[Rfam]
This 82-nucleotide sequence from Trifolium pratense belongs to the Rfam family "Small nucleolar RNA Z221/R21b". Pairs were carried over by alignment from the consensus structure, which was predicted with WAR. Rfam classes the family as a C/D-box small nucleolar RNA. On this family, see Chen et al., Nucleic Acids Res 2003: "The high diversity of snoRNAs in plants: identification and comparative study of 120 snoRNA genes from Oryza sativa". NCBI's taxonomy places the organism under Eukaryota, eudicotyledons, fabids, Trifolieae, Trifolium. Its family is annotated with RNA processing and nucleolus in the Gene Ontology. A search with the family's covariance model found it, with a score of 72 bits.

RNA sequence: GGGCCGUGAUGAUAGAGAUCAUGCACCACUCUGAUUUUCAGUGCUGAUAAUUUUCUCAAACCCAUUAUUUUUUUCUGAGCCC
Numbered sequence: 001g002g003g004c005c006g007u008g009a010u011g012a013u014a015g016a017g018a019u020c021a022u023g024c025a026c027c028a029c030u031c032u033g034a035u036u037u038u039c040a041g042u043g044c045u046g047a048u049a050a051u052u053u054u055c056u057c058a059a060a061c062c063c064a065u066u067a068u069u070u071u072u073u074u075c076u077g078a079g080c081c082c
Base pairs, nucleotide, nucleotide: 001082002081003080004079